[Rfam]
RNA sequence: AGGAGGGGAACACCGGCUAAGGGCGCCACGUCCGCAUGUCUUCACCGAUGUGACCUACAUCCUGUAGG
Numbered sequence: 001a002g003g004a005g006g007g008g009a010a011c012a013c014c015g016g017c018u019a020a021g022g023g024c025g026c027c028a029c030g031u032c033c034g035c036a037u038g039u040c041u042u043c044a045c046c047g048a049u050g051u052g053a054c055c056u057a058c059a060u061c062c063u064g065u066a067g068g
Base pairs, nucleotide, nucleotide: 011050012049014047015046016045025040027038028037054068055067056066057065058064
Bacillaceae-1 RNA: a 68-nucleotide sequence from Peribacillus faecalis. The source organism's lineage runs through Bacteria, Bacillati, Bacilli, Caryophanales and Peribacillus. Rfam classes the family as a small RNA.